[Rfam]
RNA sequence: UUGUGUCUUAGAGGUUGCGAUCGACAAAAAGUACUUCGAAGCUAGGCAUAGGGAGUCGUUAUGCUUCAAGGAAAGGUGUCUUCGCCGAAGCAGAUAUUCUUCCCUUGGAAUAUCCUGCUGGGACUAUGCUGAAUAAGUAUAGGACUGUCAUCGAUAAAUCACCCAGUUUAUCGAUGAAGCGCUACUACACAC
Numbered sequence: 001u002u003g004u005g006u007c008u009u010a011g012a013g014g015u016u017g018c019g020a021u022c023g024a025c026a027a028a029a030a031g032u033a034c035u036u037c038g039a040a041g042c043u044a045g046g047c048a049u050a051g052g053g054a055g056u057c058g059u060u061a062u063g064c065u066u067c068a069a070g071g072a073a074a075g076g077u078g079u080c081u082u083c084g085c086c087g088a089a090g091c092a093g094a095u096a097u098u099c100u101u102c103c104c105u106u107g108g109a110a111u112a113u114c115c116u117g118c119u120g121g122g123a124c125u126a127u128g129c130u131g132a133a134u135a136a137g138u139a140u141a142g143g144a145c146u147g148u149c150a151u152c153g154a155u156a157a158a159u160c161a162c163c164c165a166g167u168u169u170a171u172c173g174a175u176g177a178a179g180c181g182c183u184a185c186u187a188c189a190c191a192c
Base pairs, nucleotide, nucleotide: 006187009184010183011182017085018084019083020082023080024079025078026077035070036069038067039066040065041064042063089119090118091117092116093114094113095112096111097110098109099108100107120146121145124142125141126140127139128138129137130136148177149176150175151174152173153172154171155170156169157168158167
Annotation
Rfam assigns this 192-nucleotide RNA from Thermotalea metallivorans to the family "Lysine riboswitch aptamer". About the family: Riboswitches are metabolite binding domains within certain messenger RNAs that serve as precision sensors for their corresponding targets.